The family of this 73-nucleotide sequence from Podilymbus podiceps is "Small nucleolar RNA SNORD59".
Its family is annotated with nucleolus and RNA processing in the Gene Ontology.
Its Rfam clan is "SNORD59 clan".
The family has 24 seed sequences and 1,355 matches in Rfam 15.1.
NCBI's taxonomy places the organism under Eukaryota, Bilateria, Dipnotetrapodomorpha, Neognathae, Podilymbus.

RNA sequence: CCUUUGGUGAUGAGUAACCGUUUACUUUCGUUCUUCUGAGUUUGCUGAAGCAACACAUAGUGAUCUGAGGAGG
Numbered sequence: 001c002c003u004u005u006g007g008u009g010a011u012g013a014g015u016a017a018c019c020g021u022u023u024a025c026u027u028u029c030g031u032u033c034u035u036c037u038g039a040g041u042u043u044g045c046u047g048a049a050g051c052a053a054c055a056c057a058u059a060g061u062g063a064u065c066u067g068a069g070g071a072g073g
Stems, first nucleotide, its partner, number of pairs: 001073003005069001